[Rfam]
RNA: Lysine riboswitch aptamer
RNA sequence: CAUGCCAGAAGAGGCGCGUCGCCCAGGCAGUGUGUUGGAGGAACCGAAUCCGCAGAUAACACAUCAAGGGGUGCGACGCCGAGGUACAAACCACGCGGGUGGUAAGUAUCGGCUACAGGGGCUGAAUCCCUUGGGUUGUCACCAGGAUCGGUUCAAUAGUUGGACGAUCCCUACCUGAUUCACCUGGGUCGCAGCACAACGUUGCCGCCCCGGGUGUUCGGGUCAACAAGGUGGGGCGCUUCUGGGUGA
Numbered sequence: 001c002a003u004g005c006c007a008g009a010a011g012a013g014g015c016g017c018g019u020c021g022c023c024c025a026g027g028c029a030g031u032g033u034g035u036u037g038g039a040g041g042a043a044c045c046g047a048a049u050c051c052g053c054a055g056a057u058a059a060c061a062c063a064u065c066a067a068g069g070g071g072u073g074c075g076a077c078g079c080c081g082a083g084g085u086a087c088a089a090a091c092c093a094c095g096c097g098g099g100u101g102g103u104a105a106g107u108a109u110c111g112g113c114u115a116c117a118g119g120g121g122c123u124g125a126a127u128c129c130c131u132u133g134g135g136u137u138g139u140c141a142c143c144a145g146g147a148u149c150g151g152u153u154c155a156a157u158a159g160u161u162g163g164a165c166g167a168u169c170c171c172u173a174c175c176u177g178a179u180u181c182a183c184c185u186g187g188g189u190c191g192c193a194g195c196a197c198a199a200c201g202u203u204g205c206c207g208c209c210c211c212g213g214g215u216g217u218u219c220g221g222g223u224c225a226a227c228a229a230g231g232u233g234g235g236g237c238g239c240u241u242c243u244g245g246g247u248g249a
Stems, first nucleotide, its partner, number of pairs: 006244006016079007024071001030064008083110005090103005111137004116133006139234005